[Rfam]
Shown here is a 78-nucleotide RNA from Gouania willdenowi, a member of the family "mir-96 microRNA precursor family".
Taxonomically the source falls in Gouania (Eukaryota, Craniata, Neoteleostei, Gobiesocidae).
The literature on the family includes a 2002 paper in Genes Dev by Mourelatos et al., "miRNPs: a novel class of ribonucleoproteins containing numerous microRNAs".
Rfam 15.1 lists 691 matches to the family in 590 species.
RNA sequence: UUGCCCGUUUUGGCACUAGCACAUUUUUGCUUUUUUUCUUAAUAUUUGAGCAAUCAUGUGUGGUGCCAAUGUGGGACA
Numbered sequence: 001u002u003g004c005c006c007g008u009u010u011u012g013g014c015a016c017u018a019g020c021a022c023a024u025u026u027u028u029g030c031u032u033u034u035u036u037u038c039u040u041a042a043u044a045u046u047u048g049a050g051c052a053a054u055c056a057u058g059u060g061u062g063g064u065g066c067c068a069a070u071g072u073g074g075g076a077c078a
Stems, first nucleotide, its partner, number of pairs: 004075005010069008019061006027053006